[Rfam]
RNA sequence: AACAGAGUAAAUGAUUAACGUUAAGUGCUUCCGGAUGGGAUGUUGCCGGUAGACGAAGUGGCUAUCACGCGGUUGAUCAUUGCCUCCGCUGUU
Numbered sequence: 001a002a003c004a005g006a007g008u009a010a011a012u013g014a015u016u017a018a019c020g021u022u023a024a025g026u027g028c029u030u031c032c033g034g035a036u037g038g039g040a041u042g043u044u045g046c047c048g049g050u051a052g053a054c055g056a057a058g059u060g061g062c063u064a065u066c067a068c069g070c071g072g073u074u075g076a077u078c079a080u081u082g083c084c085u086c087c088g089c090u091g092u093u
Base pairs, nucleotide, nucleotide: 001093002092003091004090005089010081011080012079013078014077015076016075017074018073019071020070021069025054026053028052029051031049032048033047034046038087039086040085042083058068059067060066061065
Shown here is a 93-nucleotide RNA from Facklamia hominis, a member of the family "THF (Tetrahydrofolate) riboswitch aptamer". Rfam links the family to the GO term tetrahydrofolate metabolic process. Tetrahydrofolate (THF) riboswitch was first reported for Ames et al. as an RNA motif in 5' untranslated (5'-UTR)regions of folate transport and biosynthesis genes in Firmicutes genomes. The organism belongs to Facklamia hominis, within Bacteria.